RNA sequence: AUGCCUUGUGAUAAAGCCAUAAUUAUUUCAUCAUAAUAACAAAAAUUUAAUUAUAAAAAAGAAAUUAUGAUUUAAU
Numbered sequence: 001a002u003g004c005c006u007u008g009u010g011a012u013a014a015a016g017c018c019a020u021a022a023u024u025a026u027u028u029c030a031u032c033a034u035a036a037u038a039a040c041a042a043a044a045a046u047u048u049a050a051u052u053a054u055a056a057a058a059a060a061g062a063a064a065u066u067a068u069g070a071u072u073u074a075a076u
Stems, first nucleotide, its partner, number of pairs: 030071008
RNA: dfrA-dnaX RNA